[Rfam]
RNA sequence: UGGUUGAUGAAAGUUCAACCCAAGUAAGUGUCAAGGCGCUUGGUAGCUGACAGGCAGCUGGUGGAGAAAUCCUAAGGUUGAAGCCCUGUGACAACGUAGCUUCUAACGAAGUGCUAGCGAAAUAGCAGACCGUAACAUUA
Numbered sequence: 001u002g003g004u005u006g007a008u009g010a011a012a013g014u015u016c017a018a019c020c021c022a023a024g025u026a027a028g029u030g031u032c033a034a035g036g037c038g039c040u041u042g043g044u045a046g047c048u049g050a051c052a053g054g055c056a057g058c059u060g061g062u063g064g065a066g067a068a069a070u071c072c073u074a075a076g077g078u079u080g081a082a083g084c085c086c087u088g089u090g091a092c093a094a095c096g097u098a099g100c101u102u103c104u105a106a107c108g109a110a111g112u113g114c115u116a117g118c119g120a121a122a123u124a125g126c127a128g129a130c131c132g133u134a135a136c137a138u139u140a
Base pairs, nucleotide, nucleotide: 020043021042022041023040024039050089051088052087053086054085055080056079057078058077059076064071065070096114097113099112100111101110102109117133118132119131
Rfam assigns this 140-nucleotide RNA from Oceanobacillus halophilus to the family "Group II catalytic intron D1-D4-4". Gene Ontology term of the family: Group II intron splicing. The base pairs follow the family's consensus structure. Group II introns are found in rRNA, tRNA and mRNA of organelles in fungi, plants and protists, and also in mRNA in bacteria. A search with the family's covariance model found it, with a score of 97 bits. A reference for the family is Bonen and Vogel (2001), "The ins and outs of group II introns", Trends Genet.